[Rfam]
RNA sequence: AUCAACGUGGUUCGUAACCCUCCCACGCAAAAAAACUAGGAUAAA
Numbered sequence: 001a002u003c004a005a006c007g008u009g010g011u012u013c014g015u016a017a018c019c020c021u022c023c024c025a026c027g028c029a030a031a032a033a034a035a036c037u038a039g040g041a042u043a044a045a
Base pairs, nucleotide, nucleotide: 006027007026008025009024010023015038016037
The record is a 45-nucleotide RNA sequence from Chelonobacter oris, which matches "PreQ1 (pre queuosine) riboswitch aptamer" in Rfam.
Lineage of the source: Bacteria > Pseudomonadati > Gammaproteobacteria > Pasteurellaceae > Chelonobacter.
It scores 49 bits against the family's covariance model.
Its family is annotated with queuosine biosynthetic process in the Gene Ontology.
About the family: This family is a bacterial riboswitch that binds to the metabolite preQ1, an intermediate in the biosynthesis of the modified nucleoside queuosine from GTP. One example of this riboswitch is located in the leader of the Bacillus subtilis ykvJKLM (queCDEF) operon which encodes four genes necessary for queuosine production. PreQ1 binding to the riboswitch aptamer is thought to induce premature transcription termination within the leader to down-regulate expression of these genes.
On this family, see Reader et al., J Biol Chem 2004: "Identification of four genes necessary for biosynthesis of the modified nucleoside queuosine".